This 83-nucleotide sequence from Streptomyces sp. yr375 belongs to the Rfam family "Streptomyces RNA 6106".
RNA sequence: AUGCCGUGAGAGCGGCAAUUCUGGCCUCGCAGGGCCAUUACGGCGGGGGUGGUGCCGUGUCGGCGCAGCACCACCCCUGCCAC
Numbered sequence: 001a002u003g004c005c006g007u008g009a010g011a012g013c014g015g016c017a018a019u020u021c022u023g024g025c026c027u028c029g030c031a032g033g034g035c036c037a038u039u040a041c042g043g044c045g046g047g048g049g050u051g052g053u054g055c056c057g058u059g060u061c062g063g064c065g066c067a068g069c070a071c072c073a074c075c076c077c078u079g080c081c082a083c
Stems, first nucleotide, its partner, number of pairs: 002017006020040001024036001025034003043080013057066003
Dot-bracket structure: .((((((....))))))..(...((((....))).)...)..(((((((((((((.(((....))).)))))))))))))...
NCBI's taxonomy places the organism under Bacteria, Bacillati, Actinomycetota, Streptomycetaceae, Streptomyces. Rfam describes the family as follows. Identified by deep sequencing of transcriptome at the end of exponential growth phase. Appears smaller on northern blot than sequencing transcript. This indicates processing step. Streptomyces specific. The pairing is the family consensus, mapped onto this sequence.